This 102-nucleotide RNA from Eleutherodactylus coqui belongs to the Rfam family "Small nucleolar RNA SNORD16".
[Rfam]
RNA sequence: UGCUAUGAUGUUGUAAUUUGCGUCUUACUCCACGCUGUGCGACAGUUGCCUGCUGUCAUAAUGCAAGUGUGGAUGUCUGACGAAAAAUGUAAACUCUGAGCG
Numbered sequence: 001u002g003c004u005a006u007g008a009u010g011u012u013g014u015a016a017u018u019u020g021c022g023u024c025u026u027a028c029u030c031c032a033c034g035c036u037g038u039g040c041g042a043c044a045g046u047u048g049c050c051u052g053c054u055g056u057c058a059u060a061a062u063g064c065a066a067g068u069g070u071g072g073a074u075g076u077c078u079g080a081c082g083a084a085a086a087a088u089g090u091a092a093a094c095u096c097u098g099a100g101c102g
Stems, first nucleotide, its partner, number of pairs: 001102003021082004030072005039064002041057005
By type it is a C/D-box small nucleolar RNA. Its Rfam clan is "SNORD16 clan". The family's consensus secondary structure was predicted with PFOLD.